[Rfam]
RNA sequence: GAGAACUAUAUUUUCGAAAAGUAGAAUGAUGGAAUAAUUCCCAGAAAUGCUUUCCUUAAUACUCCGAUAUGCGAUUAAAUUUAACUAAAUUUAAUGGUGUAAAGCUCGGUGAAGUCGGUUGAGAAUUAUCCCUAACAUGUAAUGGUGAGGAAAUGCGAAUCAGAGAUGAUUGAGAUGAUGAUAGACCGGAGGUCAAAUUU
Number, nucleotide and partner (000 for none) at each position: 001g000002a000003g000004a000005a000006c000007u000008a000009u000010a000011u000012u000013u000014u000015c000016g000017a000018a053019a052020a051021g050022u049023a048024g000025a000026a000027u000028g000029a000030u000031g000032g042033a000034a000035u000036a000037a000038u000039u000040c000041c000042c032043a000044g000045a000046a000047a000048u023049g022050c021051u020052u019053u018054c192055c191056u190057u189058a000059a000060u000061a000062c000063u000064c109065c108066g107067a106068u101069a100070u099071g098072c097073g000074a095075u094076u093077a092078a091079a090080u089081u088082u000083a000084a000085c000086u000087a000088a081089a080090u079091u078092u077093a076094a075095u074096g000097g072098u071099g070100u069101a068102a000103a000104g000105c000106u067107c066108g065109g064110u000111g000112a000113a000114g000115u000116c188117g187118g186119u185120u184121g000122a000123g000124a000125a179126u178127u177128a176129u175130c174131c150132c149133u148134a000135a000136c000137a146138u145139g000140u000141a000142a000143u000144g000145g138146u137147g000148a133149g132150g131151a000152a000153a000154u173155g000156c172157g171158a000159a170160u169161c168162a167163g000164a000165g000166a000167u162168g161169a160170u159171u157172g156173a154174g130175a129176u128177g127178a126179u125180g000181a000182u000183a000184g120185a119186c118187c117188g116189g057190a056191g055192g054193u000194c000195a000196a000197a000198u000199u000200u000
Annotation: A member of the RNA family "Group II catalytic intron D1-D4-5" from Cetobacterium sp. 2A, 200 nucleotides long. About the family: Group II introns are found in rRNA, tRNA and mRNA of organelles in fungi, plants and protists, and also in mRNA in bacteria. The match comes from Rfam's covariance-model search (149 bits). Taxonomically the source falls in Cetobacterium (Bacteria, Fusobacteriia, Fusobacteriales, Fusobacteriaceae). The base pairs follow the family's consensus structure. Its family is annotated with Group II intron splicing in the Gene Ontology.